[Rfam]
A member of the RNA family "c-di-GMP-I riboswitch aptamer" from Gemmiger formicilis, 75 nucleotides long. The match comes from Rfam's covariance-model search (52 bits).
RNA sequence: CAAGUCCACAGGCAAACCCGGUGCAAACCGGCGACGCAAAGCUAUAGGGGCCCAUCGGGUCAGCCAGUUGCCAAC
Numbered sequence: 001c002a003a004g005u006c007c008a009c010a011g012g013c014a015a016a017c018c019c020g021g022u023g024c025a026a027a028c029c030g031g032c033g034a035c036g037c038a039a040a041g042c043u044a045u046a047g048g049g050g051c052c053c054a055u056c057g058g059g060u061c062a063g064c065c066a067g068u069u070g071c072c073a074a075c
Stems, first nucleotide, its partner, number of pairs: 012037002018031005040069004047065002049061005